[Rfam]
RNA sequence: CGGGCGGCAUUGUUCCGGCAAGUCGCACCUUAGUUUUUAGGAGCACAGUUAAUUUAAAAUCAGAGAUCCCCAGAUACUGCUUGGAUCCAAACCCGGACCGGGACAGAAAG
Dot-bracket structure: .(((((((.((........))))))).))...............................................((((((((.(((......)))))))).)))....